[Rfam]
RNA: CyVA-1 RNA
RNA sequence: AGGACGGCACAGGUUUUUACCGUUUCCACUGUCCUGGGCUCGACCGAAGGAGAACGGUGGCAGGCCGGGCCACGUUUC
Numbered sequence: 001a002g003g004a005c006g007g008c009a010c011a012g013g014u015u016u017u018u019a020c021c022g023u024u025u026c027c028a029c030u031g032u033c034c035u036g037g038g039c040u041c042g043a044c045c046g047a048a049g050g051a052g053a054a055c056g057g058u059g060g061c062a063g064g065c066c067g068g069g070c071c072a073c074g075u076u077u078c
Stems, first nucleotide, its partner, number of pairs: 001077002004075003009032004038070005044064002